[Rfam]
RNA sequence: UUACUUACCUGGACGGGGUCAAUGAGCGAUCAAGAAGGCUCAUGGCCUAUGGUGAUGGCUUCCAUUGCACUUCGGAAGCGCUUCAGCUUAAGAUCUCCCCAAGUGGGAGAGUCUGCGUCAUAAUUUGUGACAGUGGAGGCCUGCGUUCGCGCGGCCUCUAU
Numbered sequence: 001u002u003a004c005u006u007a008c009c010u011g012g013a014c015g016g017g018g019u020c021a022a023u024g025a026g027c028g029a030u031c032a033a034g035a036a037g038g039c040u041c042a043u044g045g046c047c048u049a050u051g052g053u054g055a056u057g058g059c060u061u062c063c064a065u066u067g068c069a070c071u072u073c074g075g076a077a078g079c080g081c082u083u084c085a086g087c088u089u090a091a092g093a094u095c096u097c098c099c100c101a102a103g104u105g106g107g108a109g110a111g112u113c114u115g116c117g118u119c120a121u122a123a124u125u126u127g128u129g130a131c132a133g134u135g136g137a138g139g140c141c142u143g144c145g146u147u148c149g150c151g152c153g154g155c156c157u158c159u160a161u
Stems, first nucleotide, its partner, number of pairs: 012119004016048006023042005049089001051087001053086001055083001057081001060078002062075002091114003094110003098106002134160005142153004
Shown here is a 161-nucleotide RNA from Chenopodium quinoa, a member of the family "U1 spliceosomal RNA". Taxonomically the source falls in Chenopodium (Eukaryota, Streptophyta, Euphyllophyta, Gunneridae). U1 is a small nuclear RNA (snRNA) component of the spliceosome (involved in pre-mRNA splicing). Its 5' end forms complementary base pairs with the 5' splice junction, thus defining the 5' donor site of an intron. There are significant differences in sequence and secondary structure between metazoan and yeast U1 snRNAs, the latter being much longer (568 nucleotides as compared to 164 nucleotides in human). Nevertheless, secondary structure predictions suggest that all U1 snRNAs share a 'common core' consisting of helices I, II, the proximal region of III, and IV. This family does not contain the larger yeast sequences. By type it is a spliceosomal small nuclear RNA.